Source information
A member of the RNA family "MIR2275 microRNA precursor family" from Setaria viridis, 119 nucleotides long. It scores 73 bits against the family's covariance model.
RNA sequence: GUACUGAAACUGAGAGUUGGAUGAAAGCAAACCAAUCGAUCAGCAUAUUCUUCUCUGGAUCGAUGAGCAAACAUGAUCACUGAUUGGCUUGUUUUCCUCCAAUAUCUCACCUUCAGUCG
Numbered sequence: 001g002u003a004c005u006g007a008a009a010c011u012g013a014g015a016g017u018u019g020g021a022u023g024a025a026a027g028c029a030a031a032c033c034a035a036u037c038g039a040u041c042a043g044c045a046u047a048u049u050c051u052u053c054u055c056u057g058g059a060u061c062g063a064u065g066a067g068c069a070a071a072c073a074u075g076a077u078c079a080c081u082g083a084u085u086g087g088c089u090u091g092u093u094u095u096c097c098u099c100c101a102a103u104a105u106c107u108c109a110c111c112u113u114c115a116g117u118c119g
Base pairs, nucleotide, nucleotide: 004116005115006114007113008112011109012108013107014106016103017102018101019100020099021098023096024095025094026093027092028091029090030089032087033086034085035084036083037082038081
Notes:
Rfam links the family to the GO terms RISC complex and miRNA-mediated post-transcriptional gene silencing.